[Rfam]
RNA sequence: GAAUCAAAAAUUAUAAGCACGGAGACAAUGCCACAGUUGACUGAUCUGUAUGCUAACAGUAGUUAAUUGCCAGUGUCGCCUGAUUACGGUGUCACCAGUUUCCAAGAUUAAUAUAUUAUAAUAAGGACAUGACAGGAAGUCCGUUGUUUGUGUGCUAUUUAGCGAUGAACUUGGGAUGUCGAAAUUCAGUCUACAUUU
Numbered sequence: 001g002a003a004u005c006a007a008a009a010a011u012u013a014u015a016a017g018c019a020c021g022g023a024g025a026c027a028a029u030g031c032c033a034c035a036g037u038u039g040a041c042u043g044a045u046c047u048g049u050a051u052g053c054u055a056a057c058a059g060u061a062g063u064u065a066a067u068u069g070c071c072a073g074u075g076u077c078g079c080c081u082g083a084u085u086a087c088g089g090u091g092u093c094a095c096c097a098g099u100u101u102c103c104a105a106g107a108u109u110a111a112u113a114u115a116u117u118a119u120a121a122u123a124a125g126g127a128c129a130u131g132a133c134a135g136g137a138a139g140u141c142c143g144u145u146g147u148u149u150g151u152g153u154g155c156u157a158u159u160u161a162g163c164g165a166u167g168a169a170c171u172u173g174g175g176a177u178g179u180c181g182a183a184a185u186u187c188a189g190u191c192u193a194c195a196u197u198u
Stems, first nucleotide, its partner, number of pairs: 021077002035068009046059004111190002120186002139177004146170004152166002154163003